Record summary
This 448-nucleotide part of an RNA from Coconut lethal yellowing phytoplasma belongs to the Rfam family "Bacterial large subunit ribosomal RNA". Lineage of the source: Bacteria > Mycoplasmatota > Mollicutes > Acholeplasmataceae > 16SrIV (Coconut lethal yellows group). Its family is annotated with structural constituent of ribosome and ribosome in the Gene Ontology. The family's consensus secondary structure is taken from published work.
[Rfam]
RNA sequence: CUCCCCGAAAUAGCUUUAGGGCUAGCGUUGAUUAUAUUUUUUUUGAAGGUAGAGCACUAAAUGAGUGAUGGUUCCACCUCGGGAUACUGACCUCAAUUAAACUCCGAAUGUCAUUAAAAUAAAAUCAGCAGUCAGACUUUGGGUGAUAAGGUCCAAAGUCAAAAGGGAAAGAGCCCAGACCGUCAGCUAAGGUCCCUAAAUUAAUGUUAAGUGGAAAAGGAAGUAAAGAUGUUUAGACAACUAGGAAGUUGGCUUAGAAGCAGCCAUCUUUUAAAGAGUGCGUAAUAGCUCACUAGUCAAAUGACUUUGCACCGAAAAUGUACCGGGGCUAAACAUUAUACCGAAGCUACGGAUAAAAAUAUUUAUAAUAUUUUAUAUGGUAGGGGAAGCGUUCUGAUAUCAGUGAAGCCAUAGCGGAAGCAGUGGUGGAGAGAUCAGAAGUGAGAAU
Numbered sequence: 001c002u003c004c005c006c007g008a009a010a011u012a013g014c015u016u017u018a019g020g021g022c023u024a025g026c027g028u029u030g031a032u033u034a035u036a037u038u039u040u041u042u043u044u045g046a047a048g049g050u051a052g053a054g055c056a057c058u059a060a061a062u063g064a065g066u067g068a069u070g071g072u073u074c075c076a077c078c079u080c081g082g083g084a085u086a087c088u089g090a091c092c093u094c095a096a097u098u099a100a101a102c103u104c105c106g107a108a109u110g111u112c113a114u115u116a117a118a119a120u121a122a123a124a125u126c127a128g129c130a131g132u133c134a135g136a137c138u139u140u141g142g143g144u145g146a147u148a149a150g151g152u153c154c155a156a157a158g159u160c161a162a163a164a165g166g167g168a169a170a171g172a173g174c175c176c177a178g179a180c181c182g183u184c185a186g187c188u189a190a191g192g193u194c195c196c197u198a199a200a201u202u203a204a205u206g207u208u209a210a211g212u213g214g215a216a217a218a219g220g221a222a223g224u225a226a227a228g229a230u231g232u233u234u235a236g237a238c239a240a241c242u243a244g245g246a247a248g249u250u251g252g253c254u255u256a257g258a259a260g261c262a263g264c265c266a267u268c269u270u271u272u273a274a275a276g277a278g279u280g281c282g283u284a285a286u287a288g289c290u291c292a293c294u295a296g297u298c299a300a301a302u303g304a305c306u307u308u309g310c311a312c313c314g315a316a317a318a319u320g321u322a323c324c325g326g327g328g329c330u331a332a333a334c335a336u337u338a339u340a341c342c343g344a345a346g347c348u349a350c351g352g353a354u355a356a357a358a359a360u361a362u363u364u365a366u367a368a369u370a371u372u373u374u375a376u377a378u379g380g381u382a383g384g385g386g387a388a389g390c391g392u393u394c395u396g397a398u399a400u401c402a403g404u405g406a407a408g409c410c411a412u413a414g415c416g417g418a419a420g421c422a423g424u425g426g427u428g429g430a431g432a433g434a435u436c437a438g439a440a441g442u443g444a445g446a447a448u
Stems, first nucleotide, its partner, number of pairs: 001389002003386004011024005026131001027129007037122001038119004044113003052105001053103002058099003062095004070087001071085005135160010165176003180352004185348003191342003200339001202338006219313002223310006230303003240297005246270003251265003271275001276291001280289002353378003357374003390443001392440007400432002408427005414421002